[Rfam]
RNA sequence: AUGGCGACGUGUGCUUGGUACUUUUUCCAUGACAGGCGUGUUACCCCGGUGUUUUACUGGUGUUAAGCAUGCUCACACAAGCCAUUACGGCCUCAUAGUAAUCUUGGGGUCAUAGUACUGGCCUGGUGUUGUCUGAUUAAUUUCAGACCUUCUCCACGGGUCAGCCUCCAUAUCCCCUCACACUC
Dot-bracket structure: ............(................((...((((((((((...(((.....)))...))..)))))).))...))........).................((((........((((((..(((..(((((........)))))......))).)))))).........))))........
RNA: Small nucleolar RNA SNORA23